[Rfam]
Overview:
U1A polyadenylation inhibition element (PIE): a 77-nucleotide sequence from Cyprinodon variegatus. The organism belongs to Cyprinodon, within Eukaryota. A reference for the family is Clerte and Hall (2004), "Global and Local Dynamics of the U1A Polyadenylation Inhibition Element (PIE) RNA and PIE RNA-U1A Complexes", Biochemistry. The base pairs follow the family's consensus structure, which is taken from published work. The match comes from Rfam's covariance-model search (62 bits). About the family: This family represents the U1A polyadenylation inhibition element (PIE). Its family is annotated with regulation of mRNA polyadenylation in the Gene Ontology.
RNA sequence: UGUUAAAGCAUUGCACCCAGGGUCUGGGCAACCAGACAUUGUACCUGGAGCUUUUUUCCUCUCUAUUUUUGUUUAAU
Numbered sequence: 001u002g003u004u005a006a007a008g009c010a011u012u013g014c015a016c017c018c019a020g021g022g023u024c025u026g027g028g029c030a031a032c033c034a035g036a037c038a039u040u041g042u043a044c045c046u047g048g049a050g051c052u053u054u055u056u057u058c059c060u061c062u063c064u065a066u067u068u069u070u071g072u073u074u075a076a077u
Stems, first nucleotide, its partner, number of pairs: 005054005017048004022037005